[Rfam]
Source information:
The family of this 87-nucleotide sequence from Ornithorhynchus anatinus is "mir-221 microRNA precursor family".
RNA sequence: CUAAUCGUCUGCUCAGUAGUUGGUGUAGGAUCUGUCUGACAUGAUUAAGAACAGCUACAUCUGAUUACUGGGUCACCGAUAGCAUCA
Numbered sequence: 001c002u003a004a005u006c007g008u009c010u011g012c013u014c015a016g017u018a019g020u021u022g023g024u025g026u027a028g029g030a031u032c033u034g035u036c037u038g039a040c041a042u043g044a045u046u047a048a049g050a051a052c053a054g055c056u057a058c059a060u061c062u063g064a065u066u067a068c069u070g071g072g073u074c075a076c077c078g079a080u081a082g083c084a085u086c087a
Stems, first nucleotide, its partner, number of pairs: 013071006020064003023060006032054004